[Rfam]
RNA: dfrA-dnaX RNA
RNA sequence: ACGCCUGAUGGUAAAACUAUAUUAAUUUCAUCAUAAUCUUCAUUAAAAAAUAAUUAGAAAGAAGAUUAUGAUAUAAU
Numbered sequence: 001a002c003g004c005c006u007g008a009u010g011g012u013a014a015a016a017c018u019a020u021a022u023u024a025a026u027u028u029c030a031u032c033a034u035a036a037u038c039u040u041c042a043u044u045a046a047a048a049a050a051u052a053a054u055u056a057g058a059a060a061g062a063a064g065a066u067u068a069u070g071a072u073a074u075a076a077u
Stems, first nucleotide, its partner, number of pairs: 030072008